A member of the RNA family "SAM riboswitch aptamer (S box leader)" from Lentibacillus sp. CBA3610, 97 nucleotides long. Pairs were carried over by alignment from the consensus structure, which is taken from published work. NCBI's taxonomy places the organism under Bacteria, Bacillati, Bacillota, Bacillaceae, Lentibacillus. Rfam links the family to the GO term regulation of gene expression.
RNA sequence: UUCUUAUCCAGAGAGGUGGAGGGACUGGCCCUUUGAAGCCUCAGCAUCGGUCUAUGACUGUGCUAAUUCCAGAAAGCGUUAUGCUUACAGAUAAGAA
Numbered sequence: 001u002u003c004u005u006a007u008c009c010a011g012a013g014a015g016g017u018g019g020a021g022g023g024a025c026u027g028g029c030c031c032u033u034u035g036a037a038g039c040c041u042c043a044g045c046a047u048c049g050g051u052c053u054a055u056g057a058c059u060g061u062g063c064u065a066a067u068u069c070c071a072g073a074a075a076g077c078g079u080u081a082u083g084c085u086u087a088c089a090g091a092u093a094a095g096a097a
Base pairs, nucleotide, nucleotide: 001097002096003095004094005093006092007091008090013042014041015040016039017038021031022030023029025072026071027070028069043064044063045062046061048060049059050058051057052056068089073086075085076084077083